[Rfam]
RNA sequence: GGUUGGGCAGGCAACUGCUUCAAGAUAUUGAGCUUAAUGGGCGGAGAGCU
Numbered sequence: 001g002g003u004u005g006g007g008c009a010g011g012c013a014a015c016u017g018c019u020u021c022a023a024g025a026u027a028u029u030g031a032g033c034u035u036a037a038u039g040g041g042c043g044g045a046g047a048g049c050u
Stems, first nucleotide, its partner, number of pairs: 003023003006019005031050005

Shown here is a 50-nucleotide sequence from Sporotomaculum syntrophicum, a member of the family "Na+ riboswitch aptamer (DUF1646)".
The literature on the family includes a 2022 paper in Nat Chem Biol by White et al., "Na(+) riboswitches regulate genes for diverse physiological processes in bacteria".
The match comes from Rfam's covariance-model search (43 bits).